[Rfam]
Shown here is an 85-nucleotide RNA from Bombyx mori, a member of the family "mir-282 microRNA precursor family".
The organism belongs to Bombyx, within Eukaryota.
RNA sequence: CGGGACUUUGACCUAGCCUCUCCUUGGCUUUGUCUGUUUCGUUAGUAGCUCAGACAUAGCCUGAUAGAGGUUACGUUUUGUCCCU
Numbered sequence: 001c002g003g004g005a006c007u008u009u010g011a012c013c014u015a016g017c018c019u020c021u022c023c024u025u026g027g028c029u030u031u032g033u034c035u036g037u038u039u040c041g042u043u044a045g046u047a048g049c050u051c052a053g054a055c056a057u058a059g060c061c062u063g064a065u066a067g068a069g070g071u072u073a074c075g076u077u078u079u080g081u082c083c084c085u
Stems, first nucleotide, its partner, number of pairs: 011076002014073006026061004031056005
The literature on the family includes a 2009 paper in BMC Genomics by Li et al., "Direct sequencing and expression analysis of a large number of miRNAs in Aedes aegypti and a multi-species survey of novel mosquito miRNAs".